[Rfam]
RNA sequence: GGAUAUUUGAGAGGAUCUGUCCCUAGUACGAGAGGACCGGGAUGGACGAACCAAUGGUGUUCCGGUUGUCGCGCCAGCGGCAUUGCCGGGUAGCUAAGUACGGAAAGGAUAACCGCUGAAAGCAUCUAAGCGGGAAGCCCGCCUCAAGAUAAGAUAUCCCCUCUGCAUGGCAGCAUGCAGACUAAAGACUCCUUGAAGACUACAAGGUUGAUAGGCCGGGUGUGUAAGCAUGGCAACAUGUUGAGCUUACCGGUACUAAUAAGUCGUGAG
Numbered sequence: 001g002g003a004u005a006u007u008u009g010a011g012a013g014g015a016u017c018u019g020u021c022c023c024u025a026g027u028a029c030g031a032g033a034g035g036a037c038c039g040g041g042a043u044g045g046a047c048g049a050a051c052c053a054a055u056g057g058u059g060u061u062c063c064g065g066u067u068g069u070c071g072c073g074c075c076a077g078c079g080g081c082a083u084u085g086c087c088g089g090g091u092a093g094c095u096a097a098g099u100a101c102g103g104a105a106a107g108g109a110u111a112a113c114c115g116c117u118g119a120a121a122g123c124a125u126c127u128a129a130g131c132g133g134g135a136a137g138c139c140c141g142c143c144u145c146a147a148g149a150u151a152a153g154a155u156a157u158c159c160c161c162u163c164u165g166c167a168u169g170g171c172a173g174c175a176u177g178c179a180g181a182c183u184a185a186a187g188a189c190u191c192c193u194u195g196a197a198g199a200c201u202a203c204a205a206g207g208u209u210g211a212u213a214g215g216c217c218g219g220g221u222g223u224g225u226a227a228g229c230a231u232g233g234c235a236a237c238a239u240g241u242u243g244a245g246c247u248u249a250c251c252g253g254u255a256c257u258a259a260u261a262a263g264u265c266g267u268g269a270g
Stems, first nucleotide, its partner, number of pairs: 001159008011145004017045007047102002050099002055096003062089005067082006107139002113133005162181007184267001187265004191207005212258003215254005220248001222246001228241005
Overview: Rfam assigns this 270-nucleotide part of an RNA from Desulfonema limicola to the family "Bacterial large subunit ribosomal RNA". Clan: LSU clan. It scores 2970 bits against the family's covariance model.